Rfam assigns this 129-nucleotide RNA sequence from Propithecus coquereli to the family "Small nucleolar RNA SNORA25". The base pairs follow the family's consensus structure, which was predicted with RNAfold. The match comes from Rfam's covariance-model search (89 bits). About the family: ACA25 is a member of the H/ACA class of snoRNA that guide the sites of modification of uridines to pseudouridines.

[Rfam]
RNA sequence: UGGUCAUUCCAAAGAAGGUUUGUGAGGCUGUGAAACCAAUGGCUCUUAACACACUGACCAAAUAUUAGAGUUCUCCAUAGGUUGCCAUAGUCACUCAAGAGUGCUAGUUUUCCUGAGGGAACCAUAAGA
Numbered sequence: 001u002g003g004u005c006a007u008u009c010c011a012a013a014g015a016a017g018g019u020u021u022g023u024g025a026g027g028c029u030g031u032g033a034a035a036c037c038a039a040u041g042g043c044u045c046u047u048a049a050c051a052c053a054c055u056g057a058c059c060a061a062a063u064a065u066u067a068g069a070g071u072u073c074u075c076c077a078u079a080g081g082u083u084g085c086c087a088u089a090g091u092c093a094c095u096c097a098a099g100a101g102u103g104c105u106a107g108u109u110u111u112c113c114u115g116a117g118g119g120a121a122c123c124a125u126a127a128g129a
Stems, first nucleotide, its partner, number of pairs: 002059005014047002017044004023039001026037002074120003079114003088106003092103004
Notes
NCBI's taxonomy places the organism under Eukaryota, Teleostomi, Tetrapoda, Lemuriformes, Propithecus. Rfam 15.1 lists 1,129 matches to the family in 449 species.